[Rfam]
Rfam assigns this 134-nucleotide RNA sequence from Microcebus murinus to the family "Small nucleolar RNA SNORA42/SNORA80 family".
Lineage of the source: Eukaryota > Gnathostomata > Tetrapoda > Lemuriformes > Microcebus.
The members of this family belong to the H/ACA class of snoRNAs that guide the sites of modification of uridines to pseudouridines.
A search with the family's covariance model found it, with a score of 92 bits.
RNA sequence: GAACUAAAAGUAGACCUACCCAGGCCUGUCCCCCUUGGCCUCUCAUAGUGUCCCAUGCCAGAGCAAACUGUGGCCCUGAACCAUUGCCUGGCCUGUGCCCGUAGGCUGCUGGCACUGAAGUGGGUUGCACAGUG
Numbered sequence: 001g002a003a004c005u006a007a008a009a010g011u012a013g014a015c016c017u018a019c020c021c022a023g024g025c026c027u028g029u030c031c032c033c034c035u036u037g038g039c040c041u042c043u044c045a046u047a048g049u050g051u052c053c054c055a056u057g058c059c060a061g062a063g064c065a066a067a068c069u070g071u072g073g074c075c076c077u078g079a080a081c082c083a084u085u086g087c088c089u090g091g092c093c094u095g096u097g098c099c100c101g102u103a104g105g106c107u108g109c110u111g112g113c114a115c116u117g118a119a120g121u122g123g124g125u126u127g128c129a130c131a132g133u134g
Stems, first nucleotide, its partner, number of pairs: 001053001003051002016048003022041003025037001071127006082117002087112002089108006